[Rfam]
RNA sequence: CAGUUAAAAAGUCUGUAGUUUAUUUUAUAAUAAGCAUUGUAAGGUAUACUGUAUGGUUAGGAGAGAGAUGAAAUGUGAUAACCCUAACUGGAUGAACAGAAGCGAAAGCUGUAUACUUAAAUGUAUUAUUAGACAAGGACGUAAGCUAGAGGAUCGAAGAUGAUUAGAUACCAUUGUAGUUCUAGCAGUAAACUAUGUUGAAUCAUAGAUAUAUUUUGAUAUAUAUUUAUGUAGAGAAAUUAAGAUUUUAUUGACUCUGGGGAUAGUAUGAUCGCAAGAUUGAAAAUUAAAGAAAU
Numbered sequence: 001c002a003g004u005u006a007a008a009a010a011g012u013c014u015g016u017a018g019u020u021u022a023u024u025u026u027a028u029a030a031u032a033a034g035c036a037u038u039g040u041a042a043g044g045u046a047u048a049c050u051g052u053a054u055g056g057u058u059a060g061g062a063g064a065g066a067g068a069u070g071a072a073a074u075g076u077g078a079u080a081a082c083c084c085u086a087a088c089u090g091g092a093u094g095a096a097c098a099g100a101a102g103c104g105a106a107a108g109c110u111g112u113a114u115a116c117u118u119a120a121a122u123g124u125a126u127u128a129u130u131a132g133a134c135a136a137g138g139a140c141g142u143a144a145g146c147u148a149g150a151g152g153a154u155c156g157a158a159g160a161u162g163a164u165u166a167g168a169u170a171c172c173a174u175u176g177u178a179g180u181u182c183u184a185g186c187a188g189u190a191a192a193c194u195a196u197g198u199u200g201a202a203u204c205a206u207a208g209a210u211a212u213a214u215u216u217u218g219a220u221a222u223a224u225a226u227u228u229a230u231g232u233a234g235a236g237a238a239a240u241u242a243a244g245a246u247u248u249u250a251u252u253g254a255c256u257c258u259g260g261g262g263a264u265a266g267u268a269u270g271a272u273c274g275c276a277a278g279a280u281u282g283a284a285a286a287u288u289a290a291a292g293a294a295a296u
Base pairs, nucleotide, nucleotide: 001259002258003257011140012139013138014137018134019133020132031128032127033126034124035123036122037121038120040119043117044116045115046114047113048112049111050094051093054090055089056088057087058086059085060084061083065076067074099110102109103108145186146185147184148183149182150181155179159175160174161173162172197255198254199253200248201247202246204231205230206229207228208227209226210225211224212223213222234241235240261288262287270281271280272279273278
Rfam assigns this 296-nucleotide part of an RNA from Nosema sp. 2r to the family "Microsporidia small subunit ribosomal RNA". On this family, see Yusupov et al., Science 2001: "Crystal structure of the ribosome at 5.5 A resolution". It is one of the family's seed sequences. NCBI's taxonomy places the organism under Eukaryota, Fungi, Microsporidia, Apansporoblastina, Nosema.